[Rfam]
RNA: Small nucleolar RNA SNORA84
RNA sequence: GCCCAGUGGUUACUGGGCACUGCUGUGUCCGUGCAGUGCUCCAGUGGUAGAAAUGGGCCAACAGUGACACUGUGGUUUACGCAUGGAGUCUGUGACCCGUGAGCAGCUUCCAUAGCCCGGUCACAGUUACACAC
Numbered sequence: 001g002c003c004c005a006g007u008g009g010u011u012a013c014u015g016g017g018c019a020c021u022g023c024u025g026u027g028u029c030c031g032u033g034c035a036g037u038g039c040u041c042c043a044g045u046g047g048u049a050g051a052a053a054u055g056g057g058c059c060a061a062c063a064g065u066g067a068c069a070c071u072g073u074g075g076u077u078u079a080c081g082c083a084u085g086g087a088g089u090c091u092g093u094g095a096c097c098c099g100u101g102a103g104c105a106g107c108u109u110c111c112a113u114a115g116c117c118c119g120g121u122c123a124c125a126g127u128u129a130c131a132c133a134c
Base pairs, nucleotide, nucleotide: 001058002057003056004055007049008048010047011046012045013044014043015042016041017040019037020036021035022034023033070126072124073123074122075121076120077119081116082115083113084112085111086110088108090106091105092104093103